The record is a 108-nucleotide RNA from Ciceribacter sp. L1K22, which matches "Rhizobiales sRNA Atu_At1" in Rfam. Taxonomically the source falls in Ciceribacter (Bacteria, Pseudomonadati, Alphaproteobacteria, Hyphomicrobiales). A search with the family's covariance model found it, with a score of 114 bits. A reference for the family is Wilms et al. (2012), "Deep sequencing uncovers numerous small RNAs on all four replicons of the plant pathogen Agrobacterium tumefaciens", RNA Biol.
[Rfam]
RNA sequence: AUGUCGGUCGUGUCAACCGGACGCGACGGAGAUGGAGAACAUGGCGGUUUUUCCGGUUUCUCGCCAUGGCCAACGAAGUGGCAGUCGAGCUCCCCACCCGUCCGACCG
Numbered sequence: 001a002u003g004u005c006g007g008u009c010g011u012g013u014c015a016a017c018c019g020g021a022c023g024c025g026a027c028g029g030a031g032a033u034g035g036a037g038a039a040c041a042u043g044g045c046g047g048u049u050u051u052u053c054c055g056g057u058u059u060c061u062c063g064c065c066a067u068g069g070c071c072a073a074c075g076a077a078g079u080g081g082c083a084g085u086c087g088a089g090c091u092c093c094c095c096a097c098c099c100g101u102c103c104g105a106c107c108g
Stems, first nucleotide, its partner, number of pairs: 006107004011023004025102005034093004040068007069082003